Shown here is a 578-nucleotide part of an RNA from an uncultured archaeon, a member of the family "Archaeal large subunit ribosomal RNA".

RNA sequence: CCCCUAAUGGGAAGUGAAGACCCCGUGGAGCUUUACUGCAACCUGUCGCUGGGUUGUGGCCCUGGAUGUGCAGCGUAGGUAGGACCCGUCGAAACCAAGACGCUAGUUUUGGUGGAGGGGCUCAUGAGACACUACCCUUCUUGGACUACGACCCUAACUCAGAGAUGAGGACCCCGAUAGGUGGGCAGUUUGGCUGGGGCGGCACGCCCGCGAAAAAAUAUCGAGGGCGCUCUAAGGUCAACUCAAUCGAGUCAGAAACUCGACCGAGAGUGUAAGGGCAUAAGUUGGCUUGACUGGCAACCGCAUAAUGAGGUUGGCAGAGACGAAAGUCGGACCUAACGAACCACUACGCCUUCUAAGUGAGGGCUAUUGAUGUCAGAAAAGCUACCCCGGGGAUAACAGAGUCGUCGCCGGCAAGAGUACAUAUCGACCCGGCGGCUUGCUACCUCGAUGUCGGUUCUUUCCAUCCUGGCAGUGCAGCAGCUGCCAAGGGUGAGGUUGUUCGCCUAUUAAAGGAGAUCGUGAGCUGGGUUUAGACCGUCGUGAGACAGGUCGGUUACUAUCUGUUAGGGGUGCAA
Numbered sequence: 001c002c003c004c005u006a007a008u009g010g011g012a013a014g015u016g017a018a019g020a021c022c023c024c025g026u027g028g029a030g031c032u033u034u035a036c037u038g039c040a041a042c043c044u045g046u047c048g049c050u051g052g053g054u055u056g057u058g059g060c061c062c063u064g065g066a067u068g069u070g071c072a073g074c075g076u077a078g079g080u081a082g083g084a085c086c087c088g089u090c091g092a093a094a095c096c097a098a099g100a101c102g103c104u105a106g107u108u109u110u111g112g113u114g115g116a117g118g119g120g121c122u123c124a125u126g127a128g129a130c131a132c133u134a135c136c137c138u139u140c141u142u143g144g145a146c147u148a149c150g151a152c153c154c155u156a157a158c159u160c161a162g163a164g165a166u167g168a169g170g171a172c173c174c175c176g177a178u179a180g181g182u183g184g185g186c187a188g189u190u191u192g193g194c195u196g197g198g199g200c201g202g203c204a205c206g207c208c209c210g211c212g213a214a215a216a217a218a219u220a221u222c223g224a225g226g227g228c229g230c231u232c233u234a235a236g237g238u239c240a241a242c243u244c245a246a247u248c249g250a251g252u253c254a255g256a257a258a259c260u261c262g263a264c265c266g267a268g269a270g271u272g273u274a275a276g277g278g279c280a281u282a283a284g285u286u287g288g289c290u291u292g293a294c295u296g297g298c299a300a301c302c303g304c305a306u307a308a309u310g311a312g313g314u315u316g317g318c319a320g321a322g323a324c325g326a327a328a329g330u331c332g333g334a335c336c337u338a339a340c341g342a343a344c345c346a347c348u349a350c351g352c353c354u355u356c357u358a359a360g361u362g363a364g365g366g367c368u369a370u371u372g373a374u375g376u377c378a379g380a381a382a383a384g385c386u387a388c389c390c391c392g393g394g395g396a397u398a399a400c401a402g403a404g405u406c407g408u409c410g411c412c413g414g415c416a417a418g419a420g421u422a423c424a425u426a427u428c429g430a431c432c433c434g435g436c437g438g439c440u441u442g443c444u445a446c447c448u449c450g451a452u453g454u455c456g457g458u459u460c461u462u463u464c465c466a467u468c469c470u471g472g473c474a475g476u477g478c479a480g481c482a483g484c485u486g487c488c489a490a491g492g493g494u495g496a497g498g499u500u501g502u503u504c505g506c507c508u509a510u511u512a513a514a515g516g517a518g519a520u521c522g523u524g525a526g527c528u529g530g531g532u533u534u535a536g537a538c539c540g541u542c543g544u545g546a547g548a549c550a551g552g553u554c555g556g557u558u559a560c561u562a563u564c565u566g567u568u569a570g571g572g573g574u575g576c577a578a
Stems, first nucleotide, its partner, number of pairs: 001573008010565003014560002022394004027390002029386005035189004042181007051154009061144002064141003068137001078136005085119003097110005158169004192205001193203003206228004211223001231334002237289006243269002247263005270279002294320003298316005322331001324329001345372002348369002351367005403444003407441001408438007418428002455530001456528004460522001461519005468493002472487005496508004536554004540549003
Rfam 15.1 lists 2,955 matches to the family in 1,139 species. Rfam's curators put it in the seed alignment.